[Rfam]
SAM riboswitch aptamer (S box leader): a 104-nucleotide RNA sequence from Hymenobacter jejuensis. It scores 73 bits against the family's covariance model. From the family's description: The SAM riboswitch is found upstream of a number of genes which code for proteins involved in methionine or cysteine biosynthesis in Gram-positive bacteria. Gene Ontology term of the family: regulation of gene expression.

RNA sequence: GCUUUAUACAGAAGAAGGGAGAGAUCAGGCUCUGUGAACUUCUAGCAACCUACCUUGAGCUAAGGUGCUAAUUCCUGCCUAAAAUUGUUUAGGAACUAUAAACC
Numbered sequence: 001g002c003u004u005u006a007u008a009c010a011g012a013a014g015a016a017g018g019g020a021g022a023g024a025u026c027a028g029g030c031u032c033u034g035u036g037a038a039c040u041u042c043u044a045g046c047a048a049c050c051u052a053c054c055u056u057g058a059g060c061u062a063a064g065g066u067g068c069u070a071a072u073u074c075c076u077g078c079c080u081a082a083a084a085u086u087g088u089u090u091a092g093g094a095a096c097u098a099u100a101a102a103c104c
Base pairs, nucleotide, nucleotide: 001104003102004101005100006099007098008097013043014042015041016040017039021032022031023030026077027076028075029074044069045068046067047066049065050064053059078093079092080091081090082089083088